[Rfam]
RNA sequence: AAAUUACGAAAAUAUAAGUCGCUCUGGAUAAGAGCGCCUGCUAAAUGACUCAAA
Numbered sequence: 001a002a003a004u005u006a007c008g009a010a011a012a013u014a015u016a017a018g019u020c021g022c023u024c025u026g027g028a029u030a031a032g033a034g035c036g037c038c039u040g041c042u043a044a045a046u047g048a049c050u051c052a053a054a
Stems, first nucleotide, its partner, number of pairs: 013043001015040002020036006